[Rfam]
RNA sequence: UCAGUUACAAUCUAGCAUCUGGGGCACACACAACGAGUAUCUGAUUACUCCUAAGAUUGCCCCGGGAAGGUCUGAGAUUUGGUCAAAGCUCCCUUGUUGCCGUAACAACGCUCAAAAGCUGAAAGGUGAUUGUGUGUCGUGGAGCUUCAUUUCCUAGCAGGAAACUUGUGUAAUCACAAGGCGAAAGUACCAGAAAUGCUGCAGCAUGGCUGUUGCCGCAUAACCUGCCGCCGGCCGUGUUGCAUUGAAAGCUUUCGUGGCCAGCAAUUUUAGUGCGAUGUGCUUGCUGCAAACCUCAACUCUGAGGUGCGUAGAACUCAAUUCAGACUAAUCUGUGACUGA
Numbered sequence: 001u002c003a004g005u006u007a008c009a010a011u012c013u014a015g016c017a018u019c020u021g022g023g024g025c026a027c028a029c030a031c032a033a034c035g036a037g038u039a040u041c042u043g044a045u046u047a048c049u050c051c052u053a054a055g056a057u058u059g060c061c062c063c064g065g066g067a068a069g070g071u072c073u074g075a076g077a078u079u080u081g082g083u084c085a086a087a088g089c090u091c092c093c094u095u096g097u098u099g100c101c102g103u104a105a106c107a108a109c110g111c112u113c114a115a116a117a118g119c120u121g122a123a124a125g126g127u128g129a130u131u132g133u134g135u136g137u138c139g140u141g142g143a144g145c146u147u148c149a150u151u152u153c154c155u156a157g158c159a160g161g162a163a164a165c166u167u168g169u170g171u172a173a174u175c176a177c178a179a180g181g182c183g184a185a186a187g188u189a190c191c192a193g194a195a196a197u198g199c200u201g202c203a204g205c206a207u208g209g210c211u212g213u214u215g216c217c218g219c220a221u222a223a224c225c226u227g228c229c230g231c232c233g234g235c236c237g238u239g240u241u242g243c244a245u246u247g248a249a250a251g252c253u254u255u256c257g258u259g260g261c262c263a264g265c266a267a268u269u270u271u272a273g274u275g276c277g278a279u280g281u282g283c284u285u286g287c288u289g290c291a292a293a294c295c296u297c298a299a300c301u302c303u304g305a306g307g308u309g310c311g312u313a314g315a316a317c318u319c320a321a322u323u324c325a326g327a328c329u330a331a332u333c334u335g336u337g338a339c340u341g342a
Stems, first nucleotide, its partner, number of pairs: 001342004007336003012286001014284005021063005035050005072326005081262004150164005165180006181258007201243003287314004293308005
Source information:
A member of the RNA family "Nuclear RNase P" from Drosophila navojoa, 342 nucleotides long. From the family's description: Ribonuclease P (RNase P) is a ubiquitous endoribonuclease, found in archaea, bacteria and eukarya as well as chloroplasts and mitochondria. The match comes from Rfam's covariance-model search (162 bits).